RNA sequence: GCAAAUCUUCAGGGCAGGGUGAGAUUCCCUACCGGCGGUAAAGCCCGCGAGCCGUAAGGAACCAAGAAGGUUCCGAGGCAUGAUUUGGUGAGAUUCCAAAGCCGACAGUAUAGUCUGGAUGAGAGAAGAUAAAA
Numbered sequence: 001g002c003a004a005a006u007c008u009u010c011a012g013g014g015c016a017g018g019g020u021g022a023g024a025u026u027c028c029c030u031a032c033c034g035g036c037g038g039u040a041a042a043g044c045c046c047g048c049g050a051g052c053c054g055u056a057a058g059g060a061a062c063c064a065a066g067a068a069g070g071u072u073c074c075g076a077g078g079c080a081u082g083a084u085u086u087g088g089u090g091a092g093a094u095u096c097c098a099a100a101g102c103c104g105a106c107a108g109u110a111u112a113g114u115c116u117g118g119a120u121g122a123g124a125g126a127a128g129a130u131a132a133a134a
Stems, first nucleotide, its partner, number of pairs: 005130006017029003031114002033104002035048004043102002053078001084100005106117003
RNA: FMN riboswitch aptamer (RFN element)